[Rfam]
Nucleotides: 174
Base pairs, nucleotide, nucleotide: 001016002015003014004013005012006011028174029173032170035167036166040161041160042159043158044157045156046152047151048150049149050148062147063146064145065144066143067142073139074138075137077135078134079133080132082130083129085113086112087111088110091106092105093104
Number, partner (000 for none) and nucleotide at each position: 001016u002015c003014c004013g005012u006011c007000g008000c009000g010000a011006g012005g013004c014003g015002g016001a017000g018000u019000c020000u021000g022000a023000a024000g025000g026000a027000a028174g029173c030000u031000g032170g033000a034000g035167g036166c037000a038000a039000a040161c041160u042159c043158c044157c045156g046152g047151c048150c049149c050148g051000a052000c053000g054000a055000a056000c057000a058000g059000a060000a061000a062147u063146c064145g065144c066143a067142u068000a069000u070000g071000a072000g073139g074138c075137u076000g077135u078134c079133g080132c081000a082130c083129c084000u085113g086112g087111g088110c089000g090000a091106g092105a093104g094000g095000g096000c097000a098000a099000u100000g101000a102000a103000a104093c105092u106091c107000g108000a109000a110088g111087c112086c113085c114000a115000a116000u117000a118000g119000c120000u121000a122000u123000c124000c125000g126000g127000a128000a129083g130082g131000g132080g133079c134078g135077g136000c137075a138074g139073u140000a141000g142067a143066u144065g145064c146063g147062g148050c149049g150048g151047g152046u153000a154000g155000a156045u157044g158043g159042g160041a161040g162000g163000a164000a165000g166036g167035u168000c169000g170032c171000g172000c173029g174028u